[Rfam]
RNA sequence: UGCAGAUUCAUGAUGAAACAAAUACCCCAAGCUCUUUAUUCCACUGAUUCAAGUGAUGGAAAGCUAUGCUGUCAUAGCUUUUGUGGUUUUCAAUCUGAAACAUCU
Number, nucleotide and partner (000 for none) at each position: 001u000002g000003c000004a105005g104006a103007u102008u000009c000010a000011u000012g000013a000014u000015g000016a000017a000018a000019c000020a000021a000022a000023u000024a000025c000026c000027c000028c000029a000030a045031g044032c000033u000034c000035u000036u000037u000038a000039u000040u000041c000042c000043a000044c031045u030046g000047a000048u000049u000050c000051a000052a000053g000054u000055g000056a000057u000058g000059g082060a081061a080062a079063g078064c077065u076066a075067u074068g073069c000070u000071g000072u000073c068074a067075u066076a065077g064078c063079u062080u061081u060082u059083g000084u000085g000086g000087u000088u000089u000090u000091c000092a000093a000094u000095c000096u000097g000098a000099a000100a000101c000102a007103u006104c005105u004

Small nucleolar RNA Z194: a 105-nucleotide sequence from Panicum virgatum. Rfam links the family to the GO terms nucleolus and RNA processing.